[Rfam]
RNA: Small nucleolar RNA SNORA57
RNA sequence: CCUCCAGUUCUUGGCAGACCCCGGCUCGCUGUGCCCGGGUCUGGGAUGUGCGGAGGCAGAGCAGCGCCCGGCGUCAAGUCUUCGGUGCCGGCGGUCACCUCCGCCGGUCCUACCCUCGGACACCGGGACACCC
Dot-bracket structure: (((((.........((((((..(((.......)))..))))))........)))))............(((.((.............(((((((......)))))))............)).)))........